[Rfam]
RNA sequence: CUUGAGCCGAGGGGCGAUGCGGAAACGGCAGGAAUGCGCAUUCCGGAAACGACAGCAGCAGAGCCCGCUAUACGUGAAGGAUUGGCUGAAGCGUAUUGAAAUACUGAGCCUCCAGCAAGAGGCAGCCAAGCAAGUAGCAUA
Numbered sequence: 001c002u003u004g005a006g007c008c009g010a011g012g013g014g015c016g017a018u019g020c021g022g023a024a025a026c027g028g029c030a031g032g033a034a035u036g037c038g039c040a041u042u043c044c045g046g047a048a049a050c051g052a053c054a055g056c057a058g059c060a061g062a063g064c065c066c067g068c069u070a071u072a073c074g075u076g077a078a079g080g081a082u083u084g085g086c087u088g089a090a091g092c093g094u095a096u097u098g099a100a101a102u103a104c105u106g107a108g109c110c111u112c113c114a115g116c117a118a119g120a121g122g123c124a125g126c127c128a129a130g131c132a133a134g135u136a137g138c139a140u141a
Stems, first nucleotide, its partner, number of pairs: 012066004018057003031044005068098001071095005082129004102136004108123005
Notes:
Shown here is a 141-nucleotide sequence, a member of the family "poplar-1 RNA". Rfam's curators put it in the seed alignment.